[Rfam]
RNA sequence: UGGUCUCUACCAAGGCUGCUAGGAAAUAUCAUUUCUGGUAUGCUGUGGACGUGACCAUAAAAUAAACUCCUUCAGAUUUUUAUUGUUGCUAUGGUAGCAUCAAAUCUGUUGGAAACAUCU
Number, nucleotide and partner (000 for none) at each position: 001u000002g000003g055004u054005c053006u000007c051008u000009a000010c048011c047012a046013a000014g000015g000016c000017u000018g000019c000020u000021a000022g000023g000024a000025a000026a000027u042028a041029u040030c000031a000032u000033u000034u000035c000036u000037g000038g000039u000040a029041u028042g027043c000044u000045g000046u012047g011048g010049a000050c000051g007052u000053g005054a004055c003056c000057a000058u000059a000060a000061a000062a000063u000064a000065a000066a000067c000068u113069c112070c111071u000072u000073c000074a000075g106076a105077u104078u103079u000080u000081u000082a000083u000084u099085g098086u097087u000088g000089c000090u000091a000092u000093g000094g000095u000096a000097g086098c085099a084100u000101c000102a000103a078104a077105u076106c075107u000108g000109u000110u000111g070112g069113a068114a000115a000116c000117a000118u000119c000120u000

Record summary:
Rfam assigns this 120-nucleotide sequence from Podarcis muralis to the family "Small nucleolar RNA SNORA32". The source organism's lineage runs through Eukaryota, Tetrapoda, Amniota, Lacertibaenia and Podarcis. Rfam's curators write: ACA32 is a member of the H/ACA class of snoRNA that guide the sites of modification of uridines to pseudouridines. Gene Ontology terms of the family: RNA processing and nucleolus.